[Rfam]
RNA sequence: GUGGCCUCUGGAAAGAAGGCUCGUCCUCGACGAGCCUCGCCGAAGGUGAAAGUCCGGUAAAACUCGGGCGAAACUCUCAGGCACCGAUGACAGAGGGGGAGGA
Numbered sequence: 001g002u003g004g005c006c007u008c009u010g011g012a013a014a015g016a017a018g019g020c021u022c023g024u025c026c027u028c029g030a031c032g033a034g035c036c037u038c039g040c041c042g043a044a045g046g047u048g049a050a051a052g053u054c055c056g057g058u059a060a061a062a063c064u065c066g067g068g069c070g071a072a073a074c075u076c077u078c079a080g081g082c083a084c085c086g087a088u089g090a091c092a093g094a095g096g097g098g099g100a101g102g103a
Base pairs, nucleotide, nucleotide: 005096006095007094008093009092010091017037018036019035020034021033022032023031024030039082040081041080042078043077046076048074052069053068054067055066056065057064
A member of the RNA family "Glycine riboswitch aptamer" from Sphaerisporangium rubeum, 103 nucleotides long. The source organism's lineage runs through Bacteria, Bacillati, Actinomycetota, Actinomycetes and Sphaerisporangium. From the family's description: This family represents the bacterial glycine riboswitch. Glycine riboswitches usually consist of two metabolite-binding aptamers domains with similar structures in tandem. The aptamers cooperatively bind glycine to regulate the expression of downstream genes. In Bacillus subtilis, this riboswitch is found upstream of the gcvT operon which controls glycine degradation.